[Rfam]
RNA: RAGATH-18 RNA
RNA sequence: CCCUUGGAGAGUUACACCAAAUGAGAGUAGCUAUAUAGCAAAAUCAGACUCGUAGAAUAGGGAA
Numbered sequence: 001c002c003c004u005u006g007g008a009g010a011g012u013u014a015c016a017c018c019a020a021a022u023g024a025g026a027g028u029a030g031c032u033a034u035a036u037a038g039c040a041a042a043a044u045c046a047g048a049c050u051c052g053u054a055g056a057a058u059a060g061g062g063a064a
Base pairs, nucleotide, nucleotide: 001062002061003060004059009051010050011049012048013047022046023045024044030039031038032037